msiK RNA: a 58-nucleotide RNA sequence from Microbacterium sp. BK668.
RNA sequence: CCGCAAUUCCAUUCACUACGGAUCGUCCGGCACGUACCUGCCGGUGAAGGAGAGCACG
Numbered sequence: 001c002c003g004c005a006a007u008u009c010c011a012u013u014c015a016c017u018a019c020g021g022a023u024c025g026u027c028c029g030g031c032a033c034g035u036a037c038c039u040g041c042c043g044g045u046g047a048a049g050g051a052g053a054g055c056a057c058g
Base pairs, nucleotide, nucleotide: 009050010049012048013047014046015045027044028043029042030041031040032039
Taxonomically the source falls in Microbacterium (Bacteria, Bacillati, Micrococcales, Microbacteriaceae).